[Rfam]
Nucleotides: 037
Stems, first nucleotide, its partner, number of pairs: 001036006008024003
Number, partner (000 for none) and nucleotide at each position: 001036c002035c003034u004033u005032g006031c007000a008024c009023g010022c011000c012000u013000c014000u015000u016000a017000a018000c019000a020000a021000u022010g023009c024008g025000c026000a027000c028000c029000c030000a031006g032005c033004a034003a035002g036001g037000c

Overview: The family of this 37-nucleotide RNA from Treponema succinifaciens is "abiF RNA". Rfam classes the family as a small RNA. The match comes from Rfam's covariance-model search (41 bits). About the family: Actinobacteria, Bacteroidetes, Clostridia, Proteobacteria, one Clostridia phage.